[Rfam]
This 135-nucleotide RNA sequence from Charadrius vociferus belongs to the Rfam family "Small nucleolar RNA SNORA58". Rfam describes the family as follows. ACA52 is a member of the H/ACA class of snoRNA that guide the sites of modification of uridines to pseudouridines. The literature on the family includes a 2001 paper in EMBO J by Huttenhofer et al., "RNomics: an experimental approach that identifies 201 candidates for novel, small, non-messenger RNAs in mouse". A search with the family's covariance model found it, with a score of 82 bits. It is annotated as an H/ACA-box small nucleolar RNA.

RNA sequence: CUGCAUACCAGUAGACCUUAUCUGGUUCUUCUAAUAGCCAGACGAGGGGGAUGGUGCAUGCUACAGAAACCUGGAGUUGCUGUAGGUGGUGAUCAGUGUUGAUGUGGCUGAUUGAACGGCAAUGCUCCAACAUAU
Numbered sequence: 001c002u003g004c005a006u007a008c009c010a011g012u013a014g015a016c017c018u019u020a021u022c023u024g025g026u027u028c029u030u031c032u033a034a035u036a037g038c039c040a041g042a043c044g045a046g047g048g049g050g051a052u053g054g055u056g057c058a059u060g061c062u063a064c065a066g067a068a069a070c071c072u073g074g075a076g077u078u079g080c081u082g083u084a085g086g087u088g089g090u091g092a093u094c095a096g097u098g099u100u101g102a103u104g105u106g107g108c109u110g111a112u113u114g115a116a117c118g119g120c121a122a123u124g125c126u127c128c129a130a131c132a133u134a135u
Base pairs, nucleotide, nucleotide: 003061004060005059006058008056016047017046018045019044021042022041023040024039073128074127075126076125078124081121082120083119093111094110095109096108097107